[Rfam]
RNA sequence: GCCGAGCUUGGUAACGCGAGCUUAUGACUCAAGUGAGGGCAUUAAAGUGGGACGGACUGUGAUGAAACCAAGAUUGGUUGGGUCAAGUCGUUGCAAUAUCUGGCUUGCCCGUUCCAAGUCGAGAGUUGGACCAGGUGGUUUGAGCGAAGGCACGGGCUUCCUGGUUCCUAAAGUAGAGGGCAAUGCGUUAGGCUGGUUUCACAGAGCUGCGAAAACUUCUCGCUCCCGACAGUGGAAGGAUAACUAGCCGGUGCACCCUUGACUCAAAUAACCAGCUUGGUUCCUUCUAAUGAACUCCCACUUUU
Numbered sequence: 001g002c003c004g005a006g007c008u009u010g011g012u013a014a015c016g017c018g019a020g021c022u023u024a025u026g027a028c029u030c031a032a033g034u035g036a037g038g039g040c041a042u043u044a045a046a047g048u049g050g051g052a053c054g055g056a057c058u059g060u061g062a063u064g065a066a067a068c069c070a071a072g073a074u075u076g077g078u079u080g081g082g083u084c085a086a087g088u089c090g091u092u093g094c095a096a097u098a099u100c101u102g103g104c105u106u107g108c109c110c111g112u113u114c115c116a117a118g119u120c121g122a123g124a125g126u127u128g129g130a131c132c133a134g135g136u137g138g139u140u141u142g143a144g145c146g147a148a149g150g151c152a153c154g155g156g157c158u159u160c161c162u163g164g165u166u167c168c169u170a171a172a173g174u175a176g177a178g179g180g181c182a183a184u185g186c187g188u189u190a191g192g193c194u195g196g197u198u199u200c201a202c203a204g205a206g207c208u209g210c211g212a213a214a215a216c217u218u219c220u221c222g223c224u225c226c227c228g229a230c231a232g233u234g235g236a237a238g239g240a241u242a243a244c245u246a247g248c249c250g251g252u253g254c255a256c257c258c259u260u261g262a263c264u265c266a267a268a269u270a271a272c273c274a275g276c277u278u279g280g281u282u283c284c285u286u287c288u289a290a291u292g293a294a295c296u297c298c299c300a301c302u303u304u305u
Stems, first nucleotide, its partner, number of pairs: 001040003004023007028037003044304009054295001057292001061287001062285001064283003069279004074274001076273004080265008092255004100251006107244001109239002112237005118230004123225004128167008137158006144151002168173001175220005184213001186211003193204003
A member of the RNA family "Plant signal recognition particle RNA" from Artemisia annua, 305 nucleotides long. Rfam classes the family as a non-coding RNA gene. Its Rfam clan is "SRP clan". Its family is annotated with SRP-dependent cotranslational protein targeting to membrane, signal sequence recognition and signal recognition particle, endoplasmic reticulum targeting in the Gene Ontology. A search with the family's covariance model found it, with a score of 240 bits. The base pairs follow the family's consensus structure, which is taken from published work.